[Rfam]
Fluoride riboswitch aptamer (crcB RNA motif): a 61-nucleotide sequence from Propionispora vibrioides.
Pairs were carried over by alignment from the consensus structure, which is taken from published work.
RNA sequence: AUAAGAAGAGGCGAUGGAGUUCGCCAUAAAUCCGAUCAGGAAUAAUGACUCCUACCAUAUG
Numbered sequence: 001a002u003a004a005g006a007a008g009a010g011g012c013g014a015u016g017g018a019g020u021u022c023g024c025c026a027u028a029a030a031u032c033c034g035a036u037c038a039g040g041a042a043u044a045a046u047g048a049c050u051c052c053u054a055c056c057a058u059a060u061g
Stems, first nucleotide, its partner, number of pairs: 010025004016052006031041003